[Rfam]
RNA sequence: GCGGCACUGCGCAACUGGCGAUGGGGCGCCGCGGAACACAUCCGCGGGCCUGAGGUGGUGAACCACCGGGGAGCGCAGCCGGCCCAGGGCAAAAGCCCGGUCCGUUUCAGCCGUUCGCCUGGGCAGCCCUG
Numbered sequence: 001g002c003g004g005c006a007c008u009g010c011g012c013a014a015c016u017g018g019c020g021a022u023g024g025g026g027c028g029c030c031g032c033g034g035a036a037c038a039c040a041u042c043c044g045c046g047g048g049c050c051u052g053a054g055g056u057g058g059u060g061a062a063c064c065a066c067c068g069g070g071g072a073g074c075g076c077a078g079c080c081g082g083c084c085c086a087g088g089g090c091a092a093a094a095g096c097c098c099g100g101u102c103c104g105u106u107u108c109a110g111c112c113g114u115u116c117g118c119c120u121g122g123g124c125a126g127c128c129c130u131g
Stems, first nucleotide, its partner, number of pairs: 007078006015070002017119005055066004108126001110124003